RNA: t44 RNA
Organism: Pseudoalteromonas denitrificans
Nucleotides: 097
Stems, first nucleotide, its partner, number of pairs: 023087008035078004040072003048068005
Number, partner (000 for none) and nucleotide at each position: 001000u002000a003000a004000u005000a006000u007000a008000u009000u010000a011000a012000c013000u014000a015000a016000a017000a018000a019000c020000a021000c022000a023087c024086a025085c026084a027083c028082a029081u030080c031000g032000u033000c034000a035078c036077a037076u038075a039000c040072g041071u042070u043000u044000g045000g046000g047000u048068g049067c050066a051065u052064u053000g054000u055000u056000a057000c058000a059000u060000u061000a062000a063000c064052a065051a066050u067049g068048u069000u070042a071041g072040c073000g074000c075038u076037a077036u078035g079000g080030g081029a082028u083027g084026u085025g086024u087023g088000g089000a090000g091000g092000c093000u094000u095000a096000a097000c